[Rfam]
RNA sequence: CUGGCCUCCAGGGCCUUGUACAUGGUAGGCUUUCAUUCAUUCGUUUGCACAUUCGGUGAAGGUCUUCCGUGUGCCAGGCUCUGUGCCAG
Numbered sequence: 001c002u003g004g005c006c007u008c009c010a011g012g013g014c015c016u017u018g019u020a021c022a023u024g025g026u027a028g029g030c031u032u033u034c035a036u037u038c039a040u041u042c043g044u045u046u047g048c049a050c051a052u053u054c055g056g057u058g059a060a061g062g063u064c065u066u067c068c069g070u071g072u073g074c075c076a077g078g079c080u081c082u083g084u085g086c087c088a089g
Stems, first nucleotide, its partner, number of pairs: 009083008018074008027065011
This 89-nucleotide RNA sequence from Equus caballus belongs to the Rfam family "mir-493 microRNA precursor family". Pairs were carried over by alignment from the consensus structure, which was predicted with RNAalifold. Rfam links the family to the GO terms miRNA-mediated post-transcriptional gene silencing, cellular response to leukemia inhibitory factor and RISC complex. NCBI's taxonomy places the organism under Eukaryota, Eumetazoa, Deuterostomia, Mammalia, Equus.